[Rfam]
RNA sequence: AAUAAUAAUAAAGCGCCUGGACUAUUUUCUGAACGGGAAAAAGAAAAUAGUUGACGAGGAUGAAGGUUAUCGAGAUUUAUCGGCGGGUGCCUUCCGGUUGCACACUCCAGUCGUUAUGCUUUUUUCGAAAAACAAUAGGGCGACCUAUUGCACAAAGGAAAAGGGUAGAGUGUU
Numbered sequence: 001a002a003u004a005a006u007a008a009u010a011a012a013g014c015g016c017c018u019g020g021a022c023u024a025u026u027u028u029c030u031g032a033a034c035g036g037g038a039a040a041a042a043g044a045a046a047a048u049a050g051u052u053g054a055c056g057a058g059g060a061u062g063a064a065g066g067u068u069a070u071c072g073a074g075a076u077u078u079a080u081c082g083g084c085g086g087g088u089g090c091c092u093u094c095c096g097g098u099u100g101c102a103c104a105c106u107c108c109a110g111u112c113g114u115u116a117u118g119c120u121u122u123u124u125u126c127g128a129a130a131a132a133c134a135a136u137a138g139g140g141c142g143a144c145c146u147a148u149u150g151c152a153c154a155a156a157g158g159a160a161a162a163g164g165g166u167a168g169a170g171u172g173u174u
Base pairs, nucleotide, nucleotide: 020052021051022050023049024048025047026046027045029043062094063093064092065091066090070083071082072081073080095113096112097111098110099109100108119164120163121162122161123160124159125158133150134149135148136147137146138145139144